[Rfam]
RNA: gut-2 RNA
RNA sequence: UACCGUCGGCGAAUUGGCGUCGACGAAGGGCCAAUCGGGGUCGACAGA
Dot-bracket structure: ...((((((((......))))))))...((((......))))......
Numbered sequence: 001u002a003c004c005g006u007c008g009g010c011g012a013a014u015u016g017g018c019g020u021c022g023a024c025g026a027a028g029g030g031c032c033a034a035u036c037g038g039g040g041u042c043g044a045c046a047g048a
Stems, first nucleotide, its partner, number of pairs: 004025008029042004